[Rfam]
RNA: Small nucleolar RNA Z39
Organism: Scyliorhinus torazame
RNA sequence: GUACAUAUGAUGAGAAUGUCUUGUAGUGAGUGAUACUGUGACACUGUAAACGCUUUCUGAUGUA
Numbered sequence: 001g002u003a004c005a006u007a008u009g010a011u012g013a014g015a016a017u018g019u020c021u022u023g024u025a026g027u028g029a030g031u032g033a034u035a036c037u038g039u040g041a042c043a044c045u046g047u048a049a050a051c052g053c054u055u056u057c058u059g060a061u062g063u064a
Stems, first nucleotide, its partner, number of pairs: 002064004012056002015054001017052001022046002026042002